[Rfam]
RNA sequence: UCUUGGUUUAGGUUUCACAGGAAACUGGUUUAAUAACGAAAACUAGUUUCCUCUAAAAUCCUAAUCAAGA
Numbered sequence: 001u002c003u004u005g006g007u008u009u010a011g012g013u014u015u016c017a018c019a020g021g022a023a024a025c026u027g028g029u030u031u032a033a034u035a036a037c038g039a040a041a042a043c044u045a046g047u048u049u050c051c052u053c054u055a056a057a058a059u060c061c062u063a064a065u066c067a068a069g070a
Base pairs, nucleotide, nucleotide: 003068004067005066006065007064008063011060012059013058014057015056017054019052020051021050022049023048024047025046026045027044028043029042030041031040
A member of the RNA family "mir-303 microRNA precursor family" from Drosophila melanogaster, 70 nucleotides long. Gene Ontology terms of the family: RISC complex and miRNA-mediated post-transcriptional gene silencing. The sequence is in the family's curated seed alignment. Taxonomically the source falls in Sophophora (Eukaryota, Bilateria, Drosophilini, Drosophila). Pairs were carried over by alignment from the consensus structure, which was predicted with RNAalifold.